The family of this 124-nucleotide RNA sequence from Xanthomonas campestris is "Xanthomonadaceae sRNA Xoo5". Rfam classes the family as a small RNA. The base pairs follow the family's consensus structure, which was predicted with RNAalifold. The source organism's lineage runs through Bacteria, Pseudomonadota, Lysobacterales, Lysobacteraceae and Xanthomonas campestris pv. campestris. The literature on the family includes a 2011 paper in BMC Genomics by Liang et al., "Identification and functional characterization of small non-coding RNAs in Xanthomonas oryzae pathovar oryzae".
[Rfam]
RNA sequence: CUAUGCACGCAAACGCCUUUCAGCACGACAGCAGCGCCGCCCGGAUGGCCUCCGGCAUGACGUCGCGUGCCCGCCAACCGGAAUCCCACAUUUUCGCUGGGUAACCGGAGCGUUUUGCUGCCUG
Numbered sequence: 001c002u003a004u005g006c007a008c009g010c011a012a013a014c015g016c017c018u019u020u021c022a023g024c025a026c027g028a029c030a031g032c033a034g035c036g037c038c039g040c041c042c043g044g045a046u047g048g049c050c051u052c053c054g055g056c057a058u059g060a061c062g063u064c065g066c067g068u069g070c071c072c073g074c075c076a077a078c079c080g081g082a083a084u085c086c087c088a089c090a091u092u093u094u095c096g097c098u099g100g101g102u103a104a105c106c107g108g109a110g111c112g113u114u115u116u117g118c119u120g121c122c123u124g
Stems, first nucleotide, its partner, number of pairs: 031121006038112003041108002043079002046076004054071006080106002085101004089096001